[Rfam]
RNA sequence: CCGGCUCCGGUUCACCCCACGUGUCGAAGAACGCCGCGGGGACCCGGCGGCC
Number, nucleotide and partner (000 for none) at each position: 001c000002c000003g052004g051005c050006u000007c047008c046009g045010g044011u000012u000013c000014a000015c041016c040017c039018c000019a000020c038021g037022u036023g035024u000025c000026g000027a000028a000029g000030a000031a000032c000033g000034c000035c023036g022037c021038g020039g017040g016041g015042a000043c000044c010045c009046g008047g007048c000049g000050g005051c004052c003
Shown here is a 52-nucleotide sequence from Amycolatopsis methanolica, a member of the family "L31-Actinobacteria ribosomal protein leader". Taxonomically the source falls in Amycolatopsis methanolica (Bacteria, Bacillati, Actinomycetes, Pseudonocardiales). Pairs were carried over by alignment from the consensus structure, which is taken from published work.